[Rfam]
RNA sequence: CAAAAACACUAGGGGAGCACAUUUGUGCUGAGACUGGAAUAUUCCUAAACCCUUAUCGACCUGAUCUAGUUCAUACUAGCGGAGGGAAGUGUCCUGGCACACAA
Numbered sequence: 001c002a003a004a005a006a007c008a009c010u011a012g013g014g015g016a017g018c019a020c021a022u023u024u025g026u027g028c029u030g031a032g033a034c035u036g037g038a039a040u041a042u043u044c045c046u047a048a049a050c051c052c053u054u055a056u057c058g059a060c061c062u063g064a065u066c067u068a069g070u071u072c073a074u075a076c077u078a079g080c081g082g083a084g085g086g087a088a089g090u091g092u093c094c095u096g097g098c099a100c101a102c103a104a
Stems, first nucleotide, its partner, number of pairs: 006092005011053004017028004036045003060085003066079004
The record is a 104-nucleotide RNA sequence from Macrococcus lamae, which matches "TPP riboswitch aptamer (THI element)" in Rfam. The match comes from Rfam's covariance-model search (72 bits).